[Rfam]
RNA sequence: AUCCCAAACAUCUAUCAGUAUACCACUUCAAGAGAUCAUAUCUCCCCCCAUCACAACAUCGAUCAACAUGUCUCCCUGCUCCUGCUCCAAGUGCUCCUGCAGUGGUAACUGCAGCGGCUGCUCUUGCACCUCUUGCGGUGUAAGUCUAU
Numbered sequence: 001a002u003c004c005c006a007a008a009c010a011u012c013u014a015u016c017a018g019u020a021u022a023c024c025a026c027u028u029c030a031a032g033a034g035a036u037c038a039u040a041u042c043u044c045c046c047c048c049c050a051u052c053a054c055a056a057c058a059u060c061g062a063u064c065a066a067c068a069u070g071u072c073u074c075c076c077u078g079c080u081c082c083u084g085c086u087c088c089a090a091g092u093g094c095u096c097c098u099g100c101a102g103u104g105g106u107a108a109c110u111g112c113a114g115c116g117g118c119u120g121c122u123c124u125u126g127c128a129c130c131u132c133u134u135g136c137g138g139u140g141u142a143a144g145u146c147u148a149u
Stems, first nucleotide, its partner, number of pairs: 077107004093103003111136003120127002
About this RNA
Shown here is a 149-nucleotide sequence from Penicillium ucsense, a member of the family "A. fumigatus sRNA Afu_254". Rfam 15.1 lists 185 matches to the family in 142 species. The match comes from Rfam's covariance-model search (62 bits). Pairs were carried over by alignment from the consensus structure, which was predicted with WAR. The source organism's lineage runs through Eukaryota, Opisthokonta, leotiomyceta, Eurotiomycetes and Penicillium.